[Rfam]
RNA sequence: GGUUCGGGAGUUGCCGGUGGGACGGCAGCGGGAAUAGAACCUGACCCCCUUCAUUCGUGAGCGGCGUGCAGCCGGAGCCCGACGGCAUGCACA
Numbered sequence: 001g002g003u004u005c006g007g008g009a010g011u012u013g014c015c016g017g018u019g020g021g022a023c024g025g026c027a028g029c030g031g032g033a034a035u036a037g038a039a040c041c042u043g044a045c046c047c048c049c050u051u052c053a054u055u056c057g058u059g060a061g062c063g064g065c066g067u068g069c070a071g072c073c074g075g076a077g078c079c080c081g082a083c084g085g086c087a088u089g090c091a092c093a
Stems, first nucleotide, its partner, number of pairs: 001041005010029007066092004071086004